A member of the RNA family "Plastid-psbA-1 3UTR RNA" from Olyra latifolia, 119 nucleotides long. NCBI's taxonomy places the organism under Eukaryota, Liliopsida, Petrosaviidae, commelinids, Olyra. Plastid psbA-1 is a non-coding RNA (ncRNA) present in plastids. It was identified in inverted repeat sequences in the 3 prime untranslate region (3UTR) of photosystem II quinone-binding protein (psbA). The family's consensus secondary structure was predicted with LocARNA.
[Rfam]
RNA sequence: UUGAACUUCCAUCUCUUAAUGGAUAAGGCUUUUCUGCUAACACAUAGGAAUUUUUGAAGGAAGGAAAGCCAGAAAUACCCAACAUCUUGUUCCAGCAAGAUAUUGGGUAUUUCUUUGUU
Number, nucleotide and partner (000 for none) at each position: 001u000002u000003g000004a000005a000006c000007u000008u023009c022010c021011a020012u019013c000014u000015c000016u000017u000018a000019a012020u011021g010022g009023a008024u000025a000026a000027g000028g000029c000030u000031u000032u000033u000034c000035u000036g000037c000038u000039a000040a000041c000042a000043c000044a000045u000046a000047g000048g000049a000050a000051u000052u000053u000054u000055u000056g000057a000058a000059g000060g000061a119062a118063g000064g116065a000066a000067a000068g000069c000070c000071a114072g113073a112074a111075a110076u109077a108078c107079c000080c105081a104082a103083c000084a101085u100086c099087u098088u097089g000090u000091u000092c000093c000094a000095g000096c000097a088098a087099g086100a085101u084102a000103u082104u081105g080106g000107g078108u077109a076110u075111u074112u073113c072114u071115u000116u064117g000118u062119u061